[Rfam]
RNA: Lysine riboswitch aptamer
RNA sequence: GAGUGGGGUAGAGGCGCGGGUAAUAUGAGUAUCGAUUAGGAAGUGCUGGCACACUGAUGAGCAAUCGAGAAAGGAUGACCGCCGAAGUGGAGAACUUGCCAAACGUUUUCUGCUGGGUCGACAUUGAAUAAGUGUCGAACUGUCACCGCCGAAUCUGAAGUGAUUCUGUAGGUGAAGCGCUACUUCAUGA
Numbered sequence: 001g002a003g004u005g006g007g008g009u010a011g012a013g014g015c016g017c018g019g020g021u022a023a024u025a026u027g028a029g030u031a032u033c034g035a036u037u038a039g040g041a042a043g044u045g046c047u048g049g050c051a052c053a054c055u056g057a058u059g060a061g062c063a064a065u066c067g068a069g070a071a072a073g074g075a076u077g078a079c080c081g082c083c084g085a086a087g088u089g090g091a092g093a094a095c096u097u098g099c100c101a102a103a104c105g106u107u108u109u110c111u112g113c114u115g116g117g118u119c120g121a122c123a124u125u126g127a128a129u130a131a132g133u134g135u136c137g138a139a140c141u142g143u144c145a146c147c148g149c150c151g152a153a154u155c156u157g158a159a160g161u162g163a164u165u166c167u168g169u170a171g172g173u174g175a176a177g178c179g180c181u182a183c184u185u186c187a188u189g190a
Base pairs, nucleotide, nucleotide: 006185007184008183009182010181011180016082017081018080019079021078023076024075032068033067034066035065036064037063086114087113088112089111090110091109092108093107094106095105097103115141116140118138119137120136121135122134123133124132125131143175144174145173146172147171